[Rfam]
RNA: mir-2060 microRNA precursor family
Organism: Branchiostoma lanceolatum
RNA sequence: UUGUGUUUGUAUUUGUGGAUAGUGUUCAGCCUCAAGUACAGGUGUGUAUGCCUGUGUGUGGAUGGUGUUCAGCACCAAUGGGCAGGUAUUUUUUGCU
Numbered sequence: 001u002u003g004u005g006u007u008u009g010u011a012u013u014u015g016u017g018g019a020u021a022g023u024g025u026u027c028a029g030c031c032u033c034a035a036g037u038a039c040a041g042g043u044g045u046g047u048a049u050g051c052c053u054g055u056g057u058g059u060g061g062a063u064g065g066u067g068u069u070c071a072g073c074a075c076c077a078a079u080g081g082g083c084a085g086g087u088a089u090u091u092u093u094u095g096c097u
Stems, first nucleotide, its partner, number of pairs: 004088007020077001022075005028069003032065003036057001038055007